[Rfam]
RNA sequence: UAAAUCUUUUGAGAGACAUUAAUAAAGUUGUCUCAUCAUAAUGAAAACAGAAGGAUAAAGAAAAGAUGGCAAGAUAUAUCGUUUCAUUCGUCAUUUUUUCCAUUGACGCUCUGAUUGUUACUUGUCCACAU
Numbered sequence: 001u002a003a004a005u006c007u008u009u010u011g012a013g014a015g016a017c018a019u020u021a022a023u024a025a026a027g028u029u030g031u032c033u034c035a036u037c038a039u040a041a042u043g044a045a046a047a048c049a050g051a052a053g054g055a056u057a058a059a060g061a062a063a064a065g066a067u068g069g070c071a072a073g074a075u076a077u078a079u080c081g082u083u084u085c086a087u088u089c090g091u092c093a094u095u096u097u098u099u100c101c102a103u104u105g106a107c108g109c110u111c112u113g114a115u116u117g118u119u120a121c122u123u124g125u126c127c128a129c130a131u
Stems, first nucleotide, its partner, number of pairs: 007041002010038002013034006068127002070124004078115004089108005095102001
Shown here is a 131-nucleotide RNA from Artemisia annua, a member of the family "Small nucleolar RNA snoR111". Taxonomically the source falls in Artemisia (Eukaryota, Viridiplantae, Spermatophyta, Magnoliopsida). Rfam links the family to the GO terms RNA processing and nucleolus. The family's consensus secondary structure was predicted with WAR. By type it is an H/ACA-box small nucleolar RNA. On this family, see Marker et al., Curr Biol 2002: "Experimental RNomics: identification of 140 candidates for small non-messenger RNAs in the plant Arabidopsis thaliana". It scores 67 bits against the family's covariance model.